[Rfam]
RNA sequence: UGGCGCCCAAUGUGGGGCCUGGAUACCAGGGGACAAUGUGAGGGUCUGACAAUGAAGAAAGAAGGGGUGCACCCGUUCAAAUAGUUAGGAGACAACACGGUAGACUGCUGUGACUGAGCCGACAGGUAGGUUGGUCGUUCAAUCAUGGGGCAAGAAUUGAGUCAGCAUCAGAAAUAUGUAAUACAGUUAAGAGAAGCUUUACAGGCAAGUGGAGUAAAGGUUACAACUGAGGAUUUAUUUCAUUUUUUUGAUUUUGUGAAAGACAUCUGCCCAU
Numbered sequence: 001u002g003g004c005g006c007c008c009a010a011u012g013u014g015g016g017g018c019c020u021g022g023a024u025a026c027c028a029g030g031g032g033a034c035a036a037u038g039u040g041a042g043g044g045u046c047u048g049a050c051a052a053u054g055a056a057g058a059a060a061g062a063a064g065g066g067g068u069g070c071a072c073c074c075g076u077u078c079a080a081a082u083a084g085u086u087a088g089g090a091g092a093c094a095a096c097a098c099g100g101u102a103g104a105c106u107g108c109u110g111u112g113a114c115u116g117a118g119c120c121g122a123c124a125g126g127u128a129g130g131u132u133g134g135u136c137g138u139u140c141a142a143u144c145a146u147g148g149g150g151c152a153a154g155a156a157u158u159g160a161g162u163c164a165g166c167a168u169c170a171g172a173a174a175u176a177u178g179u180a181a182u183a184c185a186g187u188u189a190a191g192a193g194a195a196g197c198u199u200u201a202c203a204g205g206c207a208a209g210u211g212g213a214g215u216a217a218a219g220g221u222u223a224c225a226a227c228u229g230a231g232g233a234u235u236u237a238u239u240u241c242a243u244u245u246u247u248u249u250g251a252u253u254u255u256g257u258g259a260a261a262g263a264c265a266u267c268u269g270c271c272c273a274u
Stems, first nucleotide, its partner, number of pairs: 006031003012026003037051003081127002084123002093116002096112005131153003136150001138149004158201003161197002209249001211247004218236005259274001262271001264269001
The family of this 274-nucleotide sequence from Nannospalax galili is "Mason-Pfizer monkey virus packaging signal".
This family represents a group of sequences that are related to the Mason-Pfizer monkey virus (MPMV) packaging signal. The packaging signal is located in the 5' UTR and is required for specific RNA encapsidation.
The family's consensus secondary structure was predicted with PFOLD.
The match comes from Rfam's covariance-model search (137 bits).